[Rfam]
A member of the RNA family "Bacterial large subunit ribosomal RNA", 247 nucleotides of a longer RNA. The match comes from Rfam's covariance-model search (2027 bits). The family's consensus secondary structure is taken from published work.
RNA sequence: AUUUUUGAAAAAUGAAAGAAUCUGACUCUAGUACGAGAGGACCGAGAAGGGUAAAUCUCUGGUGUAUCGGUUGUUUUUAAGCAUCGCCGAGUAGCUAAAUUUAUUUUGGAUAAUUACUGAAAGCAUCUAAGUAAGAAACCAUUCUUAAAAUUUUUUCAAAUGAAAACUGUAAAAGACUAUUACAUUGAUAGGUUUUAAGUGCAAGUACUGUAAGGUAUUUAGCUUAAGAAUACUAAAAGUUUCAAAU
Numbered sequence: 001a002u003u004u005u006u007g008a009a010a011a012a013u014g015a016a017a018g019a020a021u022c023u024g025a026c027u028c029u030a031g032u033a034c035g036a037g038a039g040g041a042c043c044g045a046g047a048a049g050g051g052u053a054a055a056u057c058u059c060u061g062g063u064g065u066a067u068c069g070g071u072u073g074u075u076u077u078u079a080a081g082c083a084u085c086g087c088c089g090a091g092u093a094g095c096u097a098a099a100u101u102u103a104u105u106u107u108g109g110a111u112a113a114u115u116a117c118u119g120a121a122a123g124c125a126u127c128u129a130a131g132u133a134a135g136a137a138a139c140c141a142u143u144c145u146u147a148a149a150a151u152u153u154u155u156u157c158a159a160a161u162g163a164a165a166a167c168u169g170u171a172a173a174a175g176a177c178u179a180u181u182a183c184a185u186u187g188a189u190a191g192g193u194u195u196u197a198a199g200u201g202c203a204a205g206u207a208c209u210g211u212a213a214g215g216u217a218u219u220u221a222g223c224u225u226a227a228g229a230a231u232a233c234u235a236a237a238a239g240u241u242u243c244a245a246a247u
Stems, first nucleotide, its partner, number of pairs: 006158006016146004022050002026046003051104006060097003067090005072083004107141003114134005161244001164242004168184005189235003192231005197225003205218005